[Rfam]
RNA sequence: CCAAAGGCUCUUUUCAGAGCCACCCAAGUUUUCCUACGAAAGAAG
Numbered sequence: 001c002c003a004a005a006g007g008c009u010c011u012u013u014u015c016a017g018a019g020c021c022a023c024c025c026a027a028g029u030u031u032u033c034c035u036a037c038g039a040a041a042g043a044a045g
Stems, first nucleotide, its partner, number of pairs: 006021006
RNA: Histone 3' UTR stem-loop
Organism: Nannospalax galili